The family of this 387-nucleotide RNA from Hydrocarboniphaga effusa is "Bacterial RNase P class A".
[Rfam]
Nucleotides: 387
Base pairs, nucleotide, nucleotide: 001383002382003381004380005379006378007377008376009375010374011372012336013335014334015333016332017331018330020039021038023036024035025034026033027032044370045369046368048367049366050365051364052363053224054223055222056221060273061272062271063270065220066219067218068217069216070084071083072082073081074080085099086097087096088095089094100215101214105213106212107209108208122156123155124152125151126150129149130148131147133145134144164182165181166180167179168178169177183204184202185201187200188199189198190197191196228293229292230291231290238284239283240282241281242280243279264278265277266276267275268274300319301318302317303316304315305314306313307312
Number, partner (000 for none) and nucleotide at each position: 001383c002382g003381a004380g005379u006378c007377g008376g009375c010374c011372g012336a013335a014334c015333a016332a017331c018330c019000g020039c021038c022000g023036c024035c025034g026033u027032c028000g029000c030000a031000a032027g033026a034025c035024g036023g037000g038021g039020g040000a041000g042000g043000a044370a045369a046368g047000u048367c049366c050365g051364g052363g053224c054223u055222c056221c057000a058000u059000a060273g061272g062271g063270c064000a065220g066219a067218a068217c069216g070084c071083c072082a073081g074080g075000u076000a077000a078000c079000g080074c081073c082072u083071g084070g085099g086097a087096g088095g089094c090000g091000c092000g093000a094089g095088c096087c097086u098000a099085c100215g101214g102000c103000c104000a105213g106212u107209g108208c109000a110000a111000c112000a113000g114000a115000g116000a117000g118000c119000a120000a121000a122156c123155c124152g125151c126150c127000g128000a129149u130148g131147g132000c133145c134144c135000g136000c137000g138000c139000a140000a141000g142000c143000g144134g145133g146000a147131u148130c149129a150126g151125g152124c153000a154000a155123g156122g157000g158000u159000g160000a161000a162000a163000c164182g165181g166180u167179g168178c169177g170000g171000u172000a173000a174000g175000a176000g177169c178168g179167c180166a181165c182164c183204g184202c185201g186000a187200g188199u189198c190197c191196a192000g193000c194000a195000a196191u197190g198189g199188a200187c201185c202184g203000g204183c205000a206000c207000g208108g209107u210000a211000a212106a213105c214101c215100c216069c217068g218067u219066u220065c221056g222055g223054a224053g225000c226000a227000a228293g229292g230291c231290c232000a233000a234000a235000u236000a237000g238284g239283g240282u241281g242280g243279g244000a245000c246000g247000c248000g249000g250000u251000c252000g253000c254000a255000a256000g257000a258000u259000c260000g261000c262000a263000a264278c265277g266276c267275g268274u269000g270063g271062c272061c273060c274268a275267c276266g277265c278264g279243c280242u281241c282240a283239c284238c285000g286000g287000g288000u289000a290231g291230g292229c293228u294000g295000c296000u297000g298000g299000a300319g301318c302317u303316g304315c305314a306313c307312g308000g309000c310000g311000a312307c313306g314305u315304g316303c317302a318301g319300c320000c321000u322000a323000g324000a325000g326000g327000a328000a329000u330018g331017g332016u333015u334014g335013u336012u337000g338000a339000g340000g341000g342000g343000u344000c345000g346000c347000a348000a349000g350000a351000c352000u353000c354000c355000a356000g357000a358000c359000a360000g361000a362000a363052c364051c365050c366049g367048g368046c369045u370044u371000a372011u373000a374010g375009g376008c377007c378006g379005a380004c381003u382002c383001g384000c385000u386000u387000u

Rfam describes the family as follows. Ribonuclease P (RNase P) is a ubiquitous endoribonuclease, found in archaea, bacteria and eukarya as well as chloroplasts and mitochondria. It is annotated as a ribozyme.